The record is a 75-nucleotide RNA sequence from Populus trichocarpa, which matches "Plastid-ycf2 5UTR RNA" in Rfam. From the family's description: Plastid ycf2 is a non-coding RNA (ncRNA) recognised in plastids. It was found in the prime untranslated region (5UTR) of ycf2 genes, it presents a tRNA-like motif which suggests it can be involved in mRNA maturation, particularly involved in defining the precise 5' end of the transcript. Lineage of the source: Eukaryota > Streptophytina > Magnoliopsida > Pentapetalae > Populus.

RNA sequence: GUGCAUCCAAUUAGAAUUGAACCUAUGAAUUCGCUAAUUAUAAUUUGGGUGCUUUUGCUAUUCAACCAUGGAUGC
Numbered sequence: 001g002u003g004c005a006u007c008c009a010a011u012u013a014g015a016a017u018u019g020a021a022c023c024u025a026u027g028a029a030u031u032c033g034c035u036a037a038u039u040a041u042a043a044u045u046u047g048g049g050u051g052c053u054u055u056u057g058c059u060a061u062u063c064a065a066c067c068a069u070g071g072a073u074g075c
Stems, first nucleotide, its partner, number of pairs: 003075006010026002014022001040069002045065007